[Rfam]
RNA: Mammalian CPEB3 ribozyme
RNA sequence: AACAUUUUGUGUGGGGGCACAGAAGGAGUGUUCACAUCACAGUCCCUGUCAGCCUUUGUGCAGCCUGCAAAUCAUUCC
Numbered sequence: 001a002a003c004a005u006u007u008u009g010u011g012u013g014g015g016g017g018c019a020c021a022g023a024a025g026g027a028g029u030g031u032u033c034a035c036a037u038c039a040c041a042g043u044c045c046c047u048g049u050c051a052g053c054c055u056u057u058g059u060g061c062a063g064c065c066u067g068c069a070a071a072u073c074a075u076u077c078c
Base pairs, nucleotide, nucleotide: 013046014045015044016043022077023076024075026073027072028040029039030038050067051066052065054063055062